RNA sequence: CUGCAGACUGUUCAGCGAGGCUGGGUCCAAUCUGGCUCUGUCCUUUCCUGUGUGUCUGCUAGAGAAACCUGAGGUGGUUUGAAGCCUCAGCUGUCAUCUUUAUAGCGAGGCCAUAGAAACCUCAGACAUGC
Numbered sequence: 001c002u003g004c005a006g007a008c009u010g011u012u013c014a015g016c017g018a019g020g021c022u023g024g025g026u027c028c029a030a031u032c033u034g035g036c037u038c039u040g041u042c043c044u045u046u047c048c049u050g051u052g053u054g055u056c057u058g059c060u061a062g063a064g065a066a067a068c069c070u071g072a073g074g075u076g077g078u079u080u081g082a083a084g085c086c087u088c089a090g091c092u093g094u095c096a097u098c099u100u101u102a103u104a105g106c107g108a109g110g111c112c113a114u115a116g117a118a119a120c121c122u123c124a125g126a127c128a129u130g131c
Stems, first nucleotide, its partner, number of pairs: 003059006018044003023038005070124005085110004090106002

Annotation: Shown here is a 131-nucleotide RNA from Electrophorus electricus, a member of the family "Small nucleolar RNA SNORA9". Taxonomically the source falls in Electrophorus (Eukaryota, Deuterostomia, Neopterygii, Gymnotiformes). From the family's description: ACA9 is a member of the H/ACA class of snoRNA that guide the sites of modification of uridines to pseudouridines.